RNA sequence: GUAAGAGUUUGGAUUUAUGGCAGGGCCCUCCUCCUGGGUCUCUCAUAGUGUCCCAUGCCAGAGUAAACUGUGUCCCUAAACCAUUGCCUGGCCUCUGUGCCUGCAGACUUCUGGCACUGAAGAGGAUUGUACAGUG
Numbered sequence: 001g002u003a004a005g006a007g008u009u010u011g012g013a014u015u016u017a018u019g020g021c022a023g024g025g026c027c028c029u030c031c032u033c034c035u036g037g038g039u040c041u042c043u044c045a046u047a048g049u050g051u052c053c054c055a056u057g058c059c060a061g062a063g064u065a066a067a068c069u070g071u072g073u074c075c076c077u078a079a080a081c082c083a084u085u086g087c088c089u090g091g092c093c094u095c096u097g098u099g100c101c102u103g104c105a106g107a108c109u110u111c112u113g114g115c116a117c118u119g120a121a122g123a124g125g126a127u128u129g130u131a132c133a134g135u136g
Stems, first nucleotide, its partner, number of pairs: 001058003005053001007051002015048006022041003026036001071129002075125002082119002087114002090109002093106002

Rfam assigns this 136-nucleotide sequence from Spermophilus dauricus to the family "Small nucleolar RNA SNORA42/SNORA80 family".
By type it is an H/ACA-box small nucleolar RNA.
A search with the family's covariance model found it, with a score of 109 bits.
The members of this family belong to the H/ACA class of snoRNAs that guide the sites of modification of uridines to pseudouridines. Human ACA42 (SNORA42) was cloned from HeLa cells by immunoprecipitation with anti-GAR1 antibody. Its is predicted to guide the pseudouridylation of residues U109 and U572 of 18S rRNA. ACA42 shares the same host gene with ACA26, ACA46, ACA50. This family also includes mammalian snoRNA ACA67 (SNORA80) which was identified by computational screening and its expression in mouse experimentally verified by Northern blot and primer extension analysis. ACA67 is proposed to guide the pseudouridylation of the same 18S rRNA residues as ACA42.
Its family is annotated with nucleolus and RNA processing in the Gene Ontology.